[Rfam]
RNA sequence: GGGGACGUUUUGGAUUCGACAGGGAUAGGUCGAGCUUGCGUUGCGAGCCGAGGGGUCGGCCUCGUAAAAACGCACAAGCCAAUAACUGGCAAAGAAAACAACAACUUCGCUCUAGCUGCAUAAGCUAAGCGGUCUCUCCUCUCCAUCGCCCAUGUGGAGUGGCUGAGACUCAACUUUAGUGGGAUACGCCUUUCUCCCCCCGCCUGAGGGAGAAGGAAGAGACUAAUCAGGCUAGCUGCACGGAGGCCUGUCUUUGGGCUGAAGUGCUAGCGAAAUACGAAUACAAAGACUACGCUCGUAGAAGCGUAAGUGUCGUUAUCUCUGGACGUGGGUUCAAUUCCCACCGUCUCCAUAU
Number, nucleotide and partner (000 for none) at each position: 001g351002g350003g349004g348005a347006c346007g345008u000009u000010u000011u000012g000013g000014a000015u000016u000017c000018g000019a000020c324021a323022g322023g321024g320025a319026u318027a317028g316029g000030u000031c000032g313033a000034g311035c310036u309037u308038g307039c306040g305041u304042u303043g000044c298045g297046a296047g295048c294049c064050g063051a062052g061053g060054g000055g073056u072057c000058g000059g000060c053061c052062u051063c050064g049065u000066a000067a000068a000069a000070a000071c000072g056073c055074a000075c000076a000077a000078g000079c000080c000081a000082a000083u000084a000085a000086c000087u000088g000089g000090c000091a000092a000093a000094g000095a000096a000097a000098a000099c000100a000101a000102c000103a000104a000105c000106u000107u000108c000109g130110c129111u128112c000113u127114a126115g125116c124117u123118g000119c000120a000121u000122a000123a117124g116125c115126u114127a113128a111129g110130c109131g000132g000133u000134c000135u168136c167137u166138c165139c162140u161141c000142u159143c157144c156145a155146u154147c000148g000149c183150c182151c181152a180153u179154g146155u145156g144157g143158a000159g142160u000161g140162g139163c000164u000165g138166a137167g136168a135169c000170u000171c000172a000173a000174c000175u000176u000177u000178a000179g153180u152181g151182g150183g149184a000185u000186a000187c000188g000189c000190c215191u214192u213193u212194c000195u210196c209197c208198c000199c000200c000201c000202g232203c231204c230205u229206g228207a227208g197209g196210g195211a000212g193213a192214a191215g190216g000217a000218a000219g000220a000221g000222a000223c000224u000225a000226a000227u207228c206229a205230g204231g203232c202233u000234a000235g271236c270237u000238g267239c266240a265241c264242g000243g000244a000245g000246g259247c258248c257249u000250g290251u289252c288253u287254u000255u000256g284257g248258g247259c246260u000261g000262a000263a000264g241265u240266g239267c238268u000269a000270g236271c235272g000273a000274a000275a000276u000277a000278c000279g000280a000281a000282u000283a000284c256285a000286a000287a253288g252289a251290c250291u000292a000293c000294g048295c047296u046297c045298g044299u000300a000301g000302a000303a042304g041305c040306g039307u038308a037309a036310g035311u034312g000313u032314c000315g000316u028317u027318a026319u025320c024321u023322c022323u021324g020325g000326a000327c000328g344329u343330g342331g341332g340333u000334u000335c000336a000337a000338u000339u000340c332341c331342c330343a329344c328345c007346g006347u005348c004349u003350c002351c001352a000353u000354a000355u000
A member of the RNA family "transfer-messenger RNA" from Shouchella clausii, 355 nucleotides long.
The sequence is in the family's curated seed alignment.
Bacterial tmRNA, also known as 10Sa RNA or SsrA, is named for its dual tRNA and mRNA-like properties.
Gene Ontology term of the family: RNA catabolic process.
By type it is a non-coding RNA gene.
Pairs were carried over by alignment from the consensus structure, which is taken from published work.